[Rfam]
RNA sequence: CUCCUCGAAAUGUGUUUAGGCGCAGCGGUAAUGAUUAUAGGUUGGGGGUAAAGCACUGUUUCGGUGCGGGCUGCGAGAGCGGUACCAAAUCGAGACAAACUCAGAAUACCAACUGCACACAUUGCCAGUGAGACGGUGGGGGAUAAGCUUCAUCGUCGAGAGGGAAACAGCCCAGACCACCAGCUAAGGUCCCCAAAUCAUCUCUAAGUGAUAAAGGAGGUGAGAAUGCUGAGACAACCAGGAGGUUUGCCUAGAAGCAGCCAUCCUUAAAAGAGUGCGUAAUAGCUCACUGGUCAAGCGUUCUUGCGCCGAAAAUGAACGGGGCUAAGAGAUGUACCGAAGCUGUGGACUUGUACUUGUACAAGUGGUAGAGGAGCGUUCUGUGGUAGUGAGAAGCAUUAGCGAAAGCAGGUGUGGACGAAGCAGAAGUGAGAAU
Numbered sequence: 001c002u003c004c005u006c007g008a009a010a011u012g013u014g015u016u017u018a019g020g021c022g023c024a025g026c027g028g029u030a031a032u033g034a035u036u037a038u039a040g041g042u043u044g045g046g047g048g049u050a051a052a053g054c055a056c057u058g059u060u061u062c063g064g065u066g067c068g069g070g071c072u073g074c075g076a077g078a079g080c081g082g083u084a085c086c087a088a089a090u091c092g093a094g095a096c097a098a099a100c101u102c103a104g105a106a107u108a109c110c111a112a113c114u115g116c117a118c119a120c121a122u123u124g125c126c127a128g129u130g131a132g133a134c135g136g137u138g139g140g141g142g143a144u145a146a147g148c149u150u151c152a153u154c155g156u157c158g159a160g161a162g163g164g165a166a167a168c169a170g171c172c173c174a175g176a177c178c179a180c181c182a183g184c185u186a187a188g189g190u191c192c193c194c195a196a197a198u199c200a201u202c203u204c205u206a207a208g209u210g211a212u213a214a215a216g217g218a219g220g221u222g223a224g225a226a227u228g229c230u231g232a233g234a235c236a237a238c239c240a241g242g243a244g245g246u247u248u249g250c251c252u253a254g255a256a257g258c259a260g261c262c263a264u265c266c267u268u269a270a271a272a273g274a275g276u277g278c279g280u281a282a283u284a285g286c287u288c289a290c291u292g293g294u295c296a297a298g299c300g301u302u303c304u305u306g307c308g309c310c311g312a313a314a315a316u317g318a319a320c321g322g323g324g325c326u327a328a329g330a331g332a333u334g335u336a337c338c339g340a341a342g343c344u345g346u347g348g349a350c351u352u353g354u355a356c357u358u359g360u361a362c363a364a365g366u367g368g369u370a371g372a373g374g375a376g377c378g379u380u381c382u383g384u385g386g387u388a389g390u391g392a393g394a395a396g397c398a399u400u401a402g403c404g405a406a407a408g409c410a411g412g413u414g415u416g417g418a419c420g421a422a423g424c425a426g427a428a429g430u431g432a433g434a435a436u
Stems, first nucleotide, its partner, number of pairs: 001376006011024005026128001027126007036119001038115002041113005052101002057097003061093004068086002070083005132157010162173003177348004182344003188338003197335001199334006216310002220307010237294005243267003249261002268272001273288001277286002349366007377431001379428006387421001389419001396415005402409002

Rfam assigns this 436-nucleotide part of an RNA from Leptolyngbya ectocarpi to the family "Bacterial large subunit ribosomal RNA". The base pairs follow the family's consensus structure, which is taken from published work. Taxonomically the source falls in Leptolyngbya ectocarpi (Bacteria, Bacillati, Cyanobacteriota, Leptolyngbyales).